Bacterial RNase P class A: a 387-nucleotide RNA sequence from Nocardioides sp. Root1257. The family's RNA type in Rfam is ribozyme. NCBI's taxonomy places the organism under Bacteria, Actinomycetota, Actinomycetes, Propionibacteriales, Nocardioides. Gene Ontology terms of the family: dimeric ribonuclease P complex, tRNA processing and ribonuclease P activity.
RNA sequence: UGGGCUGGCCGGGCGAUCGCGUCGCACUCCUUCAGGAGGACGUCGAGGAAAGUCCGGGCUCCACAGGGCAGGGUGGUGGCUAACAGCCACCCGGGGUGACCCGCGGGACAGUGCCACAGAGAACAAACCGCCUCUCCUCGGAGAGGUAAGGGUGAAACGGUGGUGUAAGAGACCACCAGCGGACUGGGUGACCAGGCCGGCUAGGUAAACCCCACUUGGAGCAAGAUCAAGAAGUUCGGAGCCCUCGGGCAUCGGAUGCGCGCACGUUCGAGGGCUGCCCGCCCGAGUGCGCGGGUAGAUCGCUGGAGGCCGUCGGUAACGGUGGUCCGAGAUGGAUGGUCGCCCCUCUUCGGAGGACAGAACCCGGCUUACAGGUCAGCCCGUCCG
Numbered sequence: 001u002g003g004g005c006u007g008g009c010c011g012g013g014c015g016a017u018c019g020c021g022u023c024g025c026a027c028u029c030c031u032u033c034a035g036g037a038g039g040a041c042g043u044c045g046a047g048g049a050a051a052g053u054c055c056g057g058g059c060u061c062c063a064c065a066g067g068g069c070a071g072g073g074u075g076g077u078g079g080c081u082a083a084c085a086g087c088c089a090c091c092c093g094g095g096g097u098g099a100c101c102c103g104c105g106g107g108a109c110a111g112u113g114c115c116a117c118a119g120a121g122a123a124c125a126a127a128c129c130g131c132c133u134c135u136c137c138u139c140g141g142a143g144a145g146g147u148a149a150g151g152g153u154g155a156a157a158c159g160g161u162g163g164u165g166u167a168a169g170a171g172a173c174c175a176c177c178a179g180c181g182g183a184c185u186g187g188g189u190g191a192c193c194a195g196g197c198c199g200g201c202u203a204g205g206u207a208a209a210c211c212c213c214a215c216u217u218g219g220a221g222c223a224a225g226a227u228c229a230a231g232a233a234g235u236u237c238g239g240a241g242c243c244c245u246c247g248g249g250c251a252u253c254g255g256a257u258g259c260g261c262g263c264a265c266g267u268u269c270g271a272g273g274g275c276u277g278c279c280c281g282c283c284c285g286a287g288u289g290c291g292c293g294g295g296u297a298g299a300u301c302g303c304u305g306g307a308g309g310c311c312g313u314c315g316g317u318a319a320c321g322g323u324g325g326u327c328c329g330a331g332a333u334g335g336a337u338g339g340u341c342g343c344c345c346c347u348c349u350u351c352g353g354a355g356g357a358c359a360g361a362a363c364c365c366g367g368c369u370u371a372c373a374g375g376u377c378a379g380c381c382c383g384u385c386c387g
Stems, first nucleotide, its partner, number of pairs: 001383010011372001012344007020045002023042002027038002050370003054367005059221004066280004071217005076090005091105001092103004106212002111210002113206003128151002130147007159177006179201001180199003184195004225301004260292006272284004308327008